[Rfam]
RNA sequence: CUCUGGAAAGAGUUAAUGCAUUUUGCAUUAACCACCGAAGGGGUAAGCGGCGAAUUUAUCCGCCGUGAAAACUCUCAGGUCCCGUGACAGAG
Dot-bracket structure: (((((......((((((.........)))))).(((((..(((............................))))).))).......)))))
Numbered sequence: 001c002u003c004u005g006g007a008a009a010g011a012g013u014u015a016a017u018g019c020a021u022u023u024u025g026c027a028u029u030a031a032c033c034a035c036c037g038a039a040g041g042g043g044u045a046a047g048c049g050g051c052g053a054a055u056u057u058a059u060c061c062g063c064c065g066u067g068a069a070a071a072c073u074c075u076c077a078g079g080u081c082c083c084g085u086g087a088c089a090g091a092g
Stems, first nucleotide, its partner, number of pairs: 001092005012032006034080003037076002041074003